[Rfam]
RNA sequence: UCAUGGUGGUAGUUGGGGUCAGCCCCAUGGCGGUGGAUGG
Numbered sequence: 001u002c003a004u005g006g007u008g009g010u011a012g013u014u015g016g017g018g019u020c021a022g023c024c025c026c027a028u029g030g031c032g033g034u035g036g037a038u039g040g
Stems, first nucleotide, its partner, number of pairs: 001030006
The record is a 40-nucleotide RNA, which matches "Prion pseudoknot" in Rfam. This family represents a predicted pseudoknot structure found in prion protein mRNA. It has been suggested that the family has a possible effect in prion protein translation. The sequence is in the family's curated seed alignment. The family has 148 seed sequences and 421 matches in Rfam 15.1. It is annotated as a cis-regulatory element.